wcaG RNA: a 104-nucleotide RNA sequence from Synechococcus phage S-B05. A search with the family's covariance model found it, with a score of 64 bits. Rfam classes the family as a cis-regulatory element. The base pairs follow the family's consensus structure, which is taken from published work. The source organism's lineage runs through Viruses, Heunggongvirae, Caudoviricetes, Pantevenvirales and Kyanoviridae.

[Rfam]
RNA sequence: CUGAGUUUACUAAUUCUCCAAAGAUUAGUUGGUGCGGAUGGAGGAAACUCCCGCCUGAGAUUUAGUUAUUACUCAGUGAUAAAAAUAACUUGGCGAGCCUGAGU
Numbered sequence: 001c002u003g004a005g006u007u008u009a010c011u012a013a014u015u016c017u018c019c020a021a022a023g024a025u026u027a028g029u030u031g032g033u034g035c036g037g038a039u040g041g042a043g044g045a046a047a048c049u050c051c052c053g054c055c056u057g058a059g060a061u062u063u064a065g066u067u068a069u070u071a072c073u074c075a076g077u078g079a080u081a082a083a084a085a086u087a088a089c090u091u092g093g094c095g096a097g098c099c100u101g102a103g104u
Stems, first nucleotide, its partner, number of pairs: 009029007039053003043049001055078001058073001064090006